[Rfam]
RNA sequence: UAAUAAAAUUAACUCCGAACAAAAGUAUCUAAGGAUUUUUAAUCUAUGAUACUGCGUCAAGACAAUAGUCUUCAGGGUUGUAGUAGGAAACAAGGCAGCCUUCCGUGUUUGAAAAGGAGGUUAAUUUAUAUUUAA
Numbered sequence: 001u002a003a004u005a006a007a008a009u010u011a012a013c014u015c016c017g018a019a020c021a022a023a024a025g026u027a028u029c030u031a032a033g034g035a036u037u038u039u040u041a042a043u044c045u046a047u048g049a050u051a052c053u054g055c056g057u058c059a060a061g062a063c064a065a066u067a068g069u070c071u072u073c074a075g076g077g078u079u080g081u082a083g084u085a086g087g088a089a090a091c092a093a094g095g096c097a098g099c100c101u102u103c104c105g106u107g108u109u110u111g112a113a114a115a116g117g118a119g120g121u122u123a124a125u126u127u128a129u130a131u132u133u134a135a
Stems, first nucleotide, its partner, number of pairs: 003129002006126001011121001013119004019057002024053006033045004059072005075101007084093001086091001102112002
RNA: Molybdenum/Tungsten riboswitch aptamer (Moco RNA motif)
Organism: Clostridium sp. SM-530-WT-3G